[Rfam]
RNA sequence: AAAGAUGUUCAGGUGGCCGCCCGGAUUCGUCCGGGAGGAAAGUCCGAGCACCAAAGGGCAAGGCGCUGGGUAACUCCCAGUCCCGGUGACGGGAAGGAAAGUGCCACAGAAAAGAUACCGCCCGGAUUCGUCCGGGUAAGGGUGAAAAGGCGAGGUAAGAGCUCACCGCGGACCUGGUGACAGGGACGGCAUGGUAAACCCCGCCUGGUGCAAGACCAAAUAGGGGGGCGCUCCCGAAAGGGAUAAGAUUGGCCCGGUCAAGGCUCCCGGGUAAGGUCGCUUGAGUGCAAGGGUAACCUUGCAUCUAGAGUAAUGGUCACCCUGCCUUCCUUUUGGGGAAGGUAUGACAGAACUCGGCUUACGAACAUCUUUCACG
Numbered sequence: 001a002a003a004g005a006u007g008u009u010c011a012g013g014u015g016g017c018c019g020c021c022c023g024g025a026u027u028c029g030u031c032c033g034g035g036a037g038g039a040a041a042g043u044c045c046g047a048g049c050a051c052c053a054a055a056g057g058g059c060a061a062g063g064c065g066c067u068g069g070g071u072a073a074c075u076c077c078c079a080g081u082c083c084c085g086g087u088g089a090c091g092g093g094a095a096g097g098a099a100a101g102u103g104c105c106a107c108a109g110a111a112a113a114g115a116u117a118c119c120g121c122c123c124g125g126a127u128u129c130g131u132c133c134g135g136g137u138a139a140g141g142g143u144g145a146a147a148a149g150g151c152g153a154g155g156u157a158a159g160a161g162c163u164c165a166c167c168g169c170g171g172a173c174c175u176g177g178u179g180a181c182a183g184g185g186a187c188g189g190c191a192u193g194g195u196a197a198a199c200c201c202c203g204c205c206u207g208g209u210g211c212a213a214g215a216c217c218a219a220a221u222a223g224g225g226g227g228g229c230g231c232u233c234c235c236g237a238a239a240g241g242g243a244u245a246a247g248a249u250u251g252g253c254c255c256g257g258u259c260a261a262g263g264c265u266c267c268c269g270g271g272u273a274a275g276g277u278c279g280c281u282u283g284a285g286u287g288c289a290a291g292g293g294u295a296a297c298c299u300u301g302c303a304u305c306u307a308g309a310g311u312a313a314u315g316g317u318c319a320c321c322c323u324g325c326c327u328u329c330c331u332u333u334u335g336g337g338g339a340a341g342g343u344a345u346g347a348c349a350g351a352a353c354u355c356g357g358c359u360u361a362c363g364a365a366c367a368u369c370u371u372u373c374a375c376g
Stems, first nucleotide, its partner, number of pairs: 001372010012321007020035006040360003044357005049210004056255004061206005066080005081095001082093004096201002101199002103195003118141002120137007149167002152164003168190001169188002173184004214278004224268006247259004285304008